RNA sequence: CAGGUACCGGUUCACGCCCCCGGGAAAUCCAUCCAGUCGGCGACCCGGCGACA
Numbered sequence: 001c002a003g004g005u006a007c008c009g010g011u012u013c014a015c016g017c018c019c020c021c022g023g024g025a026a027a028u029c030c031a032u033c034c035a036g037u038c039g040g041c042g043a044c045c046c047g048g049c050g051a052c053a
Base pairs, nucleotide, nucleotide: 004052005051007048008047009046010045015042016041017040018039021036023034024033025032